[Rfam]
RNA sequence: GAUGUGAAAGUGAGAAUUGGAUGAAACCAAACACUUCUUCAGCCUCAGCUCCUUGGUAUAAACAUGGGCUUGGUUUCCUUCAAUAUCUCACCUUCAACAG
Numbered sequence: 001g002a003u004g005u006g007a008a009a010g011u012g013a014g015a016a017u018u019g020g021a022u023g024a025a026a027c028c029a030a031a032c033a034c035u036u037c038u039u040c041a042g043c044c045u046c047a048g049c050u051c052c053u054u055g056g057u058a059u060a061a062a063c064a065u066g067g068g069c070u071u072g073g074u075u076u077c078c079u080u081c082a083a084u085a086u087c088u089c090a091c092c093u094u095c096a097a098c099a100g
Stems, first nucleotide, its partner, number of pairs: 005096004011090004016084006023077008032068001